[Rfam]
RNA sequence: ACAUUGAGUAGAAGCGGUCAGGUUGGAUGAAACCCGGGCAUUGCUCGCUGU
Numbered sequence: 001a002c003a004u005u006g007a008g009u010a011g012a013a014g015c016g017g018u019c020a021g022g023u024u025g026g027a028u029g030a031a032a033c034c035c036g037g038g039c040a041u042u043g044c045u046c047g048c049u050g051u
Stems, first nucleotide, its partner, number of pairs: 005047006015036001018038002021034004